[Rfam]
This 77-nucleotide sequence from Fukomys damarensis belongs to the Rfam family "Small nucleolar RNA SNORD126".
RNA sequence: AGUUUGCCAUGAUGAAAUGCAUGGUAAGUCUGUGUUUCCGCUGAUUAUCCCGAUUAAACAUAUACUCUGAGAAGACA
Numbered sequence: 001a002g003u004u005u006g007c008c009a010u011g012a013u014g015a016a017a018u019g020c021a022u023g024g025u026a027a028g029u030c031u032g033u034g035u036u037u038c039c040g041c042u043g044a045u046u047a048u049c050c051c052g053a054u055u056a057a058a059c060a061u062a063u064a065c066u067c068u069g070a071g072a073a074g075a076c077a
Base pairs, nucleotide, nucleotide: 002076003075004074005073007071
Dot-bracket structure: .((((.(...............................................................).)))).
Rfam links the family to the GO terms nucleolus and RNA processing. A search with the family's covariance model found it, with a score of 81 bits. A reference for the family is Yang et al. (2006), "snoSeeker: an advanced computational package for screening of guide and orphan snoRNA genes in the human genome", Nucleic Acids Res.